[Rfam]
RNA sequence: GGGGGUGUAUUUUUGGUUUCGACCGGAAGUAUGAAUUCCUAGGAGCAUGUCGAGUGGCGAAAGCUCGUUAAAAAUUCGUUUAAAUAUAGUCGCAAACGACGAAACCUACGCAAUCGCAGCUUAAUAACCUGCUGAAUGCCCUCAGUUCUAAGUCUUUCUAGUGACACUUAGUCUUACUGGGGUCGGUUCUUCACUAGAUCGUGUGGAUGCCCCGUCUGUGGUUGAAGCAUUAAAGAUUAUACAGACUGGGUACUUUGUGGCGUGGCGGUCCGCAGCGGGUAUCGAGAUUAAUGAUUGCCUAAACAUGUAGCGCCGAAGAUGCAGUCUUUUGGGACGAGGGUUCAACUCCCUCCACCUCCACCA
Numbered sequence: 001g002g003g004g005g006u007g008u009a010u011u012u013u014u015g016g017u018u019u020c021g022a023c024c025g026g027a028a029g030u031a032u033g034a035a036u037u038c039c040u041a042g043g044a045g046c047a048u049g050u051c052g053a054g055u056g057g058c059g060a061a062a063g064c065u066c067g068u069u070a071a072a073a074a075u076u077c078g079u080u081u082a083a084a085u086a087u088a089g090u091c092g093c094a095a096a097c098g099a100c101g102a103a104a105c106c107u108a109c110g111c112a113a114u115c116g117c118a119g120c121u122u123a124a125u126a127a128c129c130u131g132c133u134g135a136a137u138g139c140c141c142u143c144a145g146u147u148c149u150a151a152g153u154c155u156u157u158c159u160a161g162u163g164a165c166a167c168u169u170a171g172u173c174u175u176a177c178u179g180g181g182g183u184c185g186g187u188u189c190u191u192c193a194c195u196a197g198a199u200c201g202u203g204u205g206g207a208u209g210c211c212c213c214g215u216c217u218g219u220g221g222u223u224g225a226a227g228c229a230u231u232a233a234a235g236a237u238u239a240u241a242c243a244g245a246c247u248g249g250g251u252a253c254u255u256u257g258u259g260g261c262g263u264g265g266c267g268g269u270c271c272g273c274a275g276c277g278g279g280u281a282u283c284g285a286g287a288u289u290a291a292u293g294a295u296u297g298c299c300u301a302a303a304c305a306u307g308u309a310g311c312g313c314c315g316a317a318g319a320u321g322c323a324g325u326c327u328u329u330u331g332g333g334a335c336g337a338g339g340g341u342u343c344a345a346c347u348c349c350c351u352c353c354a355c356c357u358c359c360a361c362c363a
Base pairs, nucleotide, nucleotide: 001359002358003357004356005355006354007353023332024331025330026329027328028327029326032323037319038318040316043314046307047306048305049304050303051067052066053065054064055063056080057079058078059077060076061075112137114135115134116132117131118130119129140182141181142180143179144178145177148171149170150169152167153166155164157198158197159196160195161194162193163192202229203228204227214247217244249283250282251281252280253279255278256277257276258275260273261272262271264299265298266297267296268295269294270293336352337351338350339349340348
Rfam assigns this 363-nucleotide sequence from Succinivibrio dextrinosolvens to the family "transfer-messenger RNA".
Rfam classes the family as a non-coding RNA gene.
Lineage of the source: Bacteria > Gammaproteobacteria > Aeromonadales > Succinivibrio > Succinivibrio dextrinosolvens.
The base pairs follow the family's consensus structure, which is taken from published work.
About the family: Bacterial tmRNA, also known as 10Sa RNA or SsrA, is named for its dual tRNA and mRNA-like properties.
Its Rfam clan is "tRNA clan".